The family of this 103-nucleotide sequence from Oryza brachyantha is "Small nucleolar RNA snoR31/Z110/Z27". It scores 63 bits against the family's covariance model. The literature on the family includes a 2001 paper in J Mol Biol by Barneche et al., "Identification of 66 box C/D snoRNAs in Arabidopsis thaliana: extensive gene duplications generated multiple isoforms predicting new ribosomal RNA 2'-O-methylation sites". The family's RNA type in Rfam is C/D-box small nucleolar RNA. This family contains several related snoRNAs including R31, Z27 and Z110.
[Rfam]
RNA sequence: AUCAUCAUAGGAUGAAACCUCAUUAAUCUUAGGACACCUUCUGACACGGUCAUCUUACCCACCUUGCACCGUGAAUGAGAAGGCAUUUCUUUCUGAUGAUGCU
Numbered sequence: 001a002u003c004a005u006c007a008u009a010g011g012a013u014g015a016a017a018c019c020u021c022a023u024u025a026a027u028c029u030u031a032g033g034a035c036a037c038c039u040u041c042u043g044a045c046a047c048g049g050u051c052a053u054c055u056u057a058c059c060c061a062c063c064u065u066g067c068a069c070c071g072u073g074a075a076u077g078a079g080a081a082g083g084c085a086u087u088u089c090u091u092u093c094u095g096a097u098g099a100u101g102c103u
Base pairs, nucleotide, nucleotide: 001103003101004100005099006098007097042061043060